[Rfam]
RNA sequence: GUCGAGCCUGGUAGCGAUGGCUUGUUACCCAAGCGGGGGCUCGAAGGUGGUGGGAUGAAUGUACGGGCCAAGUGGGUGAGGUGUUGACGUGUAAAUCUCGACUUGUCCGUUCCAAGUCGGGCAGCUGAACCAUGCGGUCCGGGCGUAGGCUCGGGUCGCGUUGGAUCCUAAAGCGGAGGGCACAGCGUCAGGCUGGCUUCACAGAGCAGCGAAUACCUCCCGCUCUCGACGGUGGAAGGAUAACAAGUUGGCGCACGCCUCACCCAUCGUACCCACUUGGCUACUACUGAUCAAACCAUCACCUUU
Numbered sequence: 001g002u003c004g005a006g007c008c009u010g011g012u013a014g015c016g017a018u019g020g021c022u023u024g025u026u027a028c029c030c031a032a033g034c035g036g037g038g039g040c041u042c043g044a045a046g047g048u049g050g051u052g053g054g055a056u057g058a059a060u061g062u063a064c065g066g067g068c069c070a071a072g073u074g075g076g077u078g079a080g081g082u083g084u085u086g087a088c089g090u091g092u093a094a095a096u097c098u099c100g101a102c103u104u105g106u107c108c109g110u111u112c113c114a115a116g117u118c119g120g121g122c123a124g125c126u127g128a129a130c131c132a133u134g135c136g137g138u139c140c141g142g143g144c145g146u147a148g149g150c151u152c153g154g155g156u157c158g159c160g161u162u163g164g165a166u167c168c169u170a171a172a173g174c175g176g177a178g179g180g181c182a183c184a185g186c187g188u189c190a191g192g193c194u195g196g197c198u199u200c201a202c203a204g205a206g207c208a209g210c211g212a213a214u215a216c217c218u219c220c221c222g223c224u225c226u227c228g229a230c231g232g233u234g235g236a237a238g239g240a241u242a243a244c245a246a247g248u249u250g251g252c253g254c255a256c257g258c259c260u261c262a263c264c265c266a267u268c269g270u271a272c273c274c275a276c277u278u279g280g281c282u283a284c285u286a287c288u289g290a291u292c293a294a295a296c297c298a299u300c301a302c303c304u305u306u
Base pairs, nucleotide, nucleotide: 001040002039003038004023005022006021007020008019028037029036030035043306044305045304046303047302048301049300050299051298052297053296056293057292060289061287062286063285065282066281068280069279070278071277072276073275074274075273076272077271080264081263082262083261086258088257089256090255091254092253098251099250100249101248102247103246104245105244106243107239108238110237111236112235113234114233116230117229118228119227120226121225123224124223125222127167128166130164131163132162133160134159135158136157137156138155139154140153141152142151143150144149168173175220176219177218178217179216186211187210188209193204194203195202

The record is a 306-nucleotide RNA from Musa balbisiana, which matches "Plant signal recognition particle RNA" in Rfam. The family's RNA type in Rfam is non-coding RNA gene. Rfam 15.1 lists 4,988 matches to the family in 266 species. Pairs were carried over by alignment from the consensus structure, which is taken from published work. Taxonomically the source falls in Musa (Eukaryota, Streptophytina, Mesangiospermae, Zingiberales).